This 131-nucleotide sequence from Rattus norvegicus belongs to the Rfam family "Small nucleolar RNA SNORA43". The family's consensus secondary structure was predicted with RNAfold. Rfam classes the family as an H/ACA-box small nucleolar RNA. A search with the family's covariance model found it, with a score of 113 bits. NCBI's taxonomy places the organism under Eukaryota, Teleostomi, Theria, Rodentia, Rattus. Gene Ontology terms of the family: nucleolus and RNA processing.
RNA sequence: GCUGUCCUAGAACAACACCACAGUUAUGGCUCAGCUGUGCCCGUGACAUUGGGGCAAAGAGCAAGUGGCUAUUUCUACGCUCAGUGUUCAGAAGCUAUUGCGUACUAAGAAUGGUUUGUAGCUUGACAUUU
Numbered sequence: 001g002c003u004g005u006c007c008u009a010g011a012a013c014a015a016c017a018c019c020a021c022a023g024u025u026a027u028g029g030c031u032c033a034g035c036u037g038u039g040c041c042c043g044u045g046a047c048a049u050u051g052g053g054g055c056a057a058a059g060a061g062c063a064a065g066u067g068g069c070u071a072u073u074u075c076u077a078c079g080c081u082c083a084g085u086g087u088u089c090a091g092a093a094g095c096u097a098u099u100g101c102g103u104a105c106u107a108a109g110a111a112u113g114g115u116u117u118g119u120a121g122c123u124u125g126a127c128a129u130u131u
Base pairs, nucleotide, nucleotide: 003056004055005054006053007052008051009050010049020044021043023041067123068122069121075114076113077112080109081108085104086103087102089100090099